Shown here is a 94-nucleotide sequence from Bactrocera dorsalis, a member of the family "mir-210 microRNA precursor family".
A search with the family's covariance model found it, with a score of 81 bits.
The base pairs follow the family's consensus structure, which was predicted with WAR.
For this family Rfam cites "Kaposi's sarcoma-associated herpesvirus expresses an array of viral microRNAs in latently infected cells" (Cai et al., Proc Natl Acad Sci U S A, 2005).
Taxonomically the source falls in Bactrocera dorsalis complex (Eukaryota, Insecta, Panorpida, Cyclorrhapha).
[Rfam]
RNA sequence: CUGGUACUUAUUGCAGCUGCUGGCCACUGCACAAGAUUAGAUUAUGACUCUUGUGCGUGUGACAGCGGCUAUUGUGAGAGACCGAAUAACAACC
Number, nucleotide and partner (000 for none) at each position: 001c000002u000003g000004g000005u080006a000007c078008u077009u076010a075011u074012u000013g000014c000015a070016g069017c068018u067019g066020c065021u064022g063023g000024c061025c059026a058027c000028u057029g056030c055031a054032c053033a052034a000035g050036a049037u000038u000039a000040g000041a000042u000043u000044a000045u000046g000047a000048c000049u036050c035051u000052u033053g032054u031055g030056c029057g028058u026059g025060u000061g024062a000063c022064a021065g020066c019067g018068g017069c016070u015071a000072u000073u000074g011075u010076g009077a008078g007079a000080g005081a000082c000083c000084g000085a000086a000087u000088a000089a000090c000091a000092a000093c000094c000